[Rfam]
Notes
Rfam assigns this 66-nucleotide RNA from Rattus norvegicus to the family "mir-290 microRNA precursor family". Clan: mir-290 clan. The family's consensus secondary structure was predicted with RNAalifold. The organism belongs to Rattus, within Eukaryota.
RNA sequence: GUAGCCAUCAAAGUGGAGGCCCUCUCUUGGGCCCGAGCUAGAAAGUGCUUCCACUUUGUGUGCCAC
Numbered sequence: 001g002u003a004g005c006c007a008u009c010a011a012a013g014u015g016g017a018g019g020c021c022c023u024c025u026c027u028u029g030g031g032c033c034c035g036a037g038c039u040a041g042a043a044a045g046u047g048c049u050u051c052c053a054c055u056u057u058g059u060g061u062g063c064c065a066c
Base pairs, nucleotide, nucleotide: 004063005062009058010057011056012055013054014053015052016051017050018049019048020047022045023044025042026041027040